[Rfam]
RNA sequence: CGAUUGGAUAGUGCAGGAAACUGCAUGAAACUCGCCUGUAAUUCCGGCAUCAUCACGCAAGUGAUGUGGCGACUGCUCUUGCUGCUGCGGCAGUGAUUUU
Numbered sequence: 001c002g003a004u005u006g007g008a009u010a011g012u013g014c015a016g017g018a019a020a021c022u023g024c025a026u027g028a029a030a031c032u033c034g035c036c037u038g039u040a041a042u043u044c045c046g047g048c049a050u051c052a053u054c055a056c057g058c059a060a061g062u063g064a065u066g067u068g069g070c071g072a073c074u075g076c077u078c079u080u081g082c083u084g085c086u087g088c089g090g091c092a093g094u095g096a097u098u099u100u
Stems, first nucleotide, its partner, number of pairs: 011026006032072005051066006083095005